[Rfam]
RNA sequence: AUCAGUGGACGACCACUGAUGACGCUUUUUUUAACCGGGACGACCCGG
Numbered sequence: 001a002u003c004a005g006u007g008g009a010c011g012a013c014c015a016c017u018g019a020u021g022a023c024g025c026u027u028u029u030u031u032u033a034a035c036c037g038g039g040a041c042g043a044c045c046c047g048g
Stems, first nucleotide, its partner, number of pairs: 001020008035048005

Annotation
A member of the RNA family "Guanidine-II riboswitch aptamer (mini-ykkC)" from Candidatus Thiodiazotropha endoloripes, 48 nucleotides long. Lineage of the source: Bacteria > Pseudomonadati > Pseudomonadota > Gammaproteobacteria > Candidatus Thiodiazotropha. Simpler in structure and has fewer highly conserved nucleotide positions than the ykkC-yxkD leader. It scores 41 bits against the family's covariance model. Rfam 15.1 lists 1,589 matches to the family in 1,229 species. The family's consensus secondary structure is taken from published work.